[Rfam]
Bradyrhizobiaceae sRNA BjrC68: an 82-nucleotide RNA sequence from Afipia sp. P52-10. By type it is a small RNA. NCBI's taxonomy places the organism under Bacteria, Alphaproteobacteria, Hyphomicrobiales, Nitrobacteraceae, Afipia.

RNA sequence: GAGAGACAACGGUUGGGGCACAAACCCGGCACUGCCCCAAACGUCGAGGGGCUCCAGCGCAAGCUGGGGCCCCUCACCUUUU
Numbered sequence: 001g002a003g004a005g006a007c008a009a010c011g012g013u014u015g016g017g018g019c020a021c022a023a024a025c026c027c028g029g030c031a032c033u034g035c036c037c038c039a040a041a042c043g044u045c046g047a048g049g050g051g052c053u054c055c056a057g058c059g060c061a062a063g064c065u066g067g068g069g070c071c072c073c074u075c076a077c078c079u080u081u082u
Stems, first nucleotide, its partner, number of pairs: 010043002013040006048073008057064002